A member of the RNA family "SAM-I/IV (S-adenosyl methionine) riboswitch aptamer", 122 nucleotides long. Rfam links the family to the GO terms S-adenosylmethionine metabolic process and regulation of gene expression.
[Rfam]
RNA sequence: UAGAGGUAUGAGGAUUGCCUCACUAACCCCAAGGUGAGGCUGCCAACCGAGCACAUGCCACGGUGGCCGAAUCUUAAUGAGAUUCCAUACGUUGGAUUAACCAGAAAAAGGAGCCCUGUGCU
Number, nucleotide and partner (000 for none) at each position: 001u000002a000003g000004a000005g000006g090007u089008a088009u087010g086011a000012g000013g000014a000015u000016u000017g040018c039019c038020u037021c036022a035023c034024u033025a000026a000027c000028c000029c000030c000031a000032a000033g024034g023035u022036g021037a020038g019039g018040c017041u000042g067043c066044c065045a000046a000047c063048c062049g061050a000051g058052c057053a000054c000055a000056u000057g052058c051059c000060a000061c049062g048063g047064u000065g044066g043067c042068c000069g000070a000071a000072u000073c000074u000075u000076a000077a000078u000079g000080a000081g000082a000083u000084u000085c000086c010087a009088u008089a007090c006091g000092u104093u103094g102095g101096a000097u000098u000099a000100a000101c095102c094103a093104g092105a000106a000107a000108a000109a000110g000111g000112a000113g000114c000115c000116c000117u000118g000119u000120g000121c000122u000